[Rfam]
RNA sequence: UGCUCAUCCAGAGGGGUGGAGGGACCGGCCCUGCGAAGCCCCGGCAACCAUCUCGACAUGUGGAACCGCGAUCACCGCGGCCCGUCGAGACAGGUGCCAACUCCGGCCUGGGGUCAAGGUGGCCACCAGGAAAGAUGAGGG
Numbered sequence: 001u002g003c004u005c006a007u008c009c010a011g012a013g014g015g016g017u018g019g020a021g022g023g024a025c026c027g028g029c030c031c032u033g034c035g036a037a038g039c040c041c042c043g044g045c046a047a048c049c050a051u052c053u054c055g056a057c058a059u060g061u062g063g064a065a066c067c068g069c070g071a072u073c074a075c076c077g078c079g080g081c082c083c084g085u086c087g088a089g090a091c092a093g094g095u096g097c098c099a100a101c102u103c104c105g106g107c108c109u110g111g112g113g114u115c116a117a118g119g120u121g122g123c124c125a126c127c128a129g130g131a132a133a134g135a136u137g138a139g140g141g
Base pairs, nucleotide, nucleotide: 001141003139004138005137006136007135008134013042014041015040016039017038021031022030023029025106026105027104028103043098044097045096046095048094049093051090052089053088054087055086056085057084102133107130108129109128110127111126

The record is a 141-nucleotide RNA sequence from Nocardiopsis eucommiae, which matches "SAM riboswitch aptamer (S box leader)" in Rfam. The match comes from Rfam's covariance-model search (78 bits). Lineage of the source: Bacteria > Bacillati > Actinomycetes > Streptosporangiales > Nocardiopsis.